[Rfam]
RNA sequence: GCUCAAACAUAAAUGUUUGAGUUCACUCCUCACACCACACUCCGCCCAGGCUUUUAGUCUGGGCGGUU
Numbered sequence: 001g002c003u004c005a006a007a008c009a010u011a012a013a014u015g016u017u018u019g020a021g022u023u024c025a026c027u028c029c030u031c032a033c034a035c036c037a038c039a040c041u042c043c044g045c046c047c048a049g050g051c052u053u054u055u056a057g058u059c060u061g062g063g064c065g066g067u068u
Stems, first nucleotide, its partner, number of pairs: 001022008043065009

Shown here is a 68-nucleotide RNA sequence from Phormidium tenue, a member of the family "Cyanobacterial functional RNA 1". The source organism's lineage runs through Bacteria, Bacillati, Cyanophyceae, Phormidium and Phormidium tenue. The match comes from Rfam's covariance-model search (45 bits). On this family, see Voss et al., BMC Genomics 2007: "A motif-based search in bacterial genomes identifies the ortholog of the small RNA Yfr1 in all lineages of cyanobacteria".